[Rfam]
RNA sequence: GUCGGUCCUCGGUAGUGGCCCACGGGGACGAACUGCCACCCGCGGGCCUCGAUCGAAGACCGGC
Numbered sequence: 001g002u003c004g005g006u007c008c009u010c011g012g013u014a015g016u017g018g019c020c021c022a023c024g025g026g027g028a029c030g031a032a033c034u035g036c037c038a039c040c041c042g043c044g045g046g047c048c049u050c051g052a053u054c055g056a057a058g059a060c061c062g063g064c
Stems, first nucleotide, its partner, number of pairs: 001064007009056005017048005023042004027037001029035001

A member of the RNA family "Actino-pnp RNA" from a Propionibacteriales bacterium, 64 nucleotides long. Lineage of the source: Bacteria > Bacillati > Actinomycetota > Actinomycetes > Propionibacteriales.